[Rfam]
chrB-a RNA: a 78-nucleotide RNA sequence from Sphingomonas jeddahensis. Pairs were carried over by alignment from the consensus structure, which is taken from published work. Taxonomically the source falls in Sphingomonas (Bacteria, Alphaproteobacteria, Sphingomonadales, Sphingomonadaceae). It is annotated as a cis-regulatory element.

RNA sequence: CCCAUGGGGAAUGCGAUCUCCCCACGAGGCGUCAGCUAAAGAAUCGCGUCCAGCUCAUCACGCAAAGGACGCGCCAUG
Numbered sequence: 001c002c003c004a005u006g007g008g009g010a011a012u013g014c015g016a017u018c019u020c021c022c023c024a025c026g027a028g029g030c031g032u033c034a035g036c037u038a039a040a041g042a043a044u045c046g047c048g049u050c051c052a053g054c055u056c057a058u059c060a061c062g063c064a065a066a067g068g069a070c071g072c073g074c075c076a077u078g
Stems, first nucleotide, its partner, number of pairs: 005024006046072006
Dot-bracket structure: ....((((((........)))))).....................((((((...............))))))......